[Rfam]
RNA sequence: GCAGCGCCUAGGAUGGCCCCCGAAAAGCCGUUUCCCUUGACGGCCUGGCGCUGCUACUUCUCAAGGG
Numbered sequence: 001g002c003a004g005c006g007c008c009u010a011g012g013a014u015g016g017c018c019c020c021c022g023a024a025a026a027g028c029c030g031u032u033u034c035c036c037u038u039g040a041c042g043g044c045c046u047g048g049c050g051c052u053g054c055u056a057c058u059u060c061u062c063a064a065g066g067g
Stems, first nucleotide, its partner, number of pairs: 001054008011021002027044005034067006

Description: Shown here is a 67-nucleotide RNA from Parahaliea aestuarii, a member of the family "int-alpA RNA". From the family's description: Acidobacteria (1 example), Planctomycetes (1 example), Proteobacteria. The organism belongs to Parahaliea, within Bacteria.